[Rfam]
RNA sequence: CUCUUAUCAAGAGUGGCUGAGGGACCGGCCCUGUGAAGCCCGGCAACCUUUUCGCGUCAUGCGGCGCGUGAAUCGGUGCUAAAUCCGGAGAGCCUGAAAUGGCUCGGAGAUGAGAG
Numbered sequence: 001c002u003c004u005u006a007u008c009a010a011g012a013g014u015g016g017c018u019g020a021g022g023g024a025c026c027g028g029c030c031c032u033g034u035g036a037a038g039c040c041c042g043g044c045a046a047c048c049u050u051u052u053c054g055c056g057u058c059a060u061g062c063g064g065c066g067c068g069u070g071a072a073u074c075g076g077u078g079c080u081a082a083a084u085c086c087g088g089a090g091a092g093c094c095u096g097a098a099a100u101g102g103c104u105c106g107g108a109g110a111u112g113a114g115a116g
Base pairs, nucleotide, nucleotide: 001116002115003114004113005112006111007110008109013041015040016039017038021031022030023029025088026087027086028085042080043079044078045077047076048075049072050071051070084108090105091104092103093102094101
RNA: SAM riboswitch aptamer (S box leader)